[Rfam]
RNA sequence: GGUGCGCAUCGUGACUGGCGAGCCGAGCGUGGAACCGACCACGAGGAAGCGAUGCGCGGCCCCAGCGCCACGAGGUGCCGCCCGCCUGGGCACCCCGG
Numbered sequence: 001g002g003u004g005c006g007c008a009u010c011g012u013g014a015c016u017g018g019c020g021a022g023c024c025g026a027g028c029g030u031g032g033a034a035c036c037g038a039c040c041a042c043g044a045g046g047a048a049g050c051g052a053u054g055c056g057c058g059g060c061c062c063c064a065g066c067g068c069c070a071c072g073a074g075g076u077g078c079c080g081c082c083c084g085c086c087u088g089g090g091c092a093c094c095c096c097g098g
Stems, first nucleotide, its partner, number of pairs: 003058010015046002017086004029042004075093005
A member of the RNA family "ZMP/ZTP riboswitch aptamer (pfl RNA motif)" from Streptomyces malaysiensis, 98 nucleotides long. Lineage of the source: Bacteria > Bacillati > Actinomycetota > Streptomycetaceae > Streptomyces. Gene Ontology terms of the family: one-carbon metabolic process and regulation of purine nucleotide biosynthetic process.